A member of the RNA family "MIR473 microRNA precursor family" from Ziziphus jujuba, 90 nucleotides long. Lineage of the source: Eukaryota > Streptophyta > Tracheophyta > rosids > Ziziphus jujuba.

[Rfam]
RNA sequence: UUUGUCCACUCUUCCUCCGGGCUUCGAGCUUAUAUACAAUGUCUGGCAUUGUUAUCUAGCUAGAAGCCCUUGAGGGAGAGUGAACAACAA
Numbered sequence: 001u002u003u004g005u006c007c008a009c010u011c012u013u014c015c016u017c018c019g020g021g022c023u024u025c026g027a028g029c030u031u032a033u034a035u036a037c038a039a040u041g042u043c044u045g046g047c048a049u050u051g052u053u054a055u056c057u058a059g060c061u062a063g064a065a066g067c068c069c070u071u072g073a074g075g076g077a078g079a080g081u082g083a084a085c086a087a088c089a090a
Base pairs, nucleotide, nucleotide: 007082008081009080010079011078012077013076014075015074017072019069020068021067022066023065024064025063
Rfam links the family to the GO terms miRNA-mediated post-transcriptional gene silencing and RISC complex. Pairs were carried over by alignment from the consensus structure, which was predicted with WAR. On this family, see Lu et al., Plant Cell 2005: "Novel and mechanical stress-responsive MicroRNAs in Populus trichocarpa that are absent from Arabidopsis".